[Rfam]
RNA: Selenocysteine transfer RNA
Organism: Actinomadura harenae
RNA sequence: GGAGGCGGAUGAGCGCCUGGUGGUCUCCCCUGCCUUCAAAGCAGGUGGUCCCGAGGACCUCGGGACGGCGGGUUCGAUCCCCGCCCGCCUCC
Numbered sequence: 001g002g003a004g005g006c007g008g009a010u011g012a013g014c015g016c017c018u019g020g021u022g023g024u025c026u027c028c029c030c031u032g033c034c035u036u037c038a039a040a041g042c043a044g045g046u047g048g049u050c051c052c053g054a055g056g057a058c059c060u061c062g063g064g065a066c067g068g069c070g071g072g073u074u075c076g077a078u079c080c081c082c083g084c085c086c087g088c089c090u091c092c
Base pairs, nucleotide, nucleotide: 001092002091003090004089005088006087007086008085011027012026013025015024016023017022029045030044031043032042033041048066049065050064051063052062069083070082071081072080